RNA sequence: GUAUAAUUAAUUUGACAUCUUUAUAUAAGUAUCUAAUUGGUGAUACGUUUCUACUAAAAGCCUUAACUUUUAACUAUAAAGAAAGCCAAGAUUUGU
Dot-bracket structure: .................((((((((...(((((........)))))........((((((......))))))..))))))))..............
Numbered sequence: 001g002u003a004u005a006a007u008u009a010a011u012u013u014g015a016c017a018u019c020u021u022u023a024u025a026u027a028a029g030u031a032u033c034u035a036a037u038u039g040g041u042g043a044u045a046c047g048u049u050u051c052u053a054c055u056a057a058a059a060g061c062c063u064u065a066a067c068u069u070u071u072a073a074c075u076a077u078a079a080a081g082a083a084a085g086c087c088a089a090g091a092u093u094u095g096u
Stems, first nucleotide, its partner, number of pairs: 018082008029046005055072006

The family of this 96-nucleotide sequence from Mycoplasma marinum is "Purine riboswitch aptamer".
Rfam describes the family as follows. Riboswitches are metabolite binding domains within certain messenger RNAs that serve as precision sensors for their corresponding targets.
The source organism's lineage runs through Bacteria, Bacillati, Mollicutes, Mycoplasmataceae and Mycoplasma.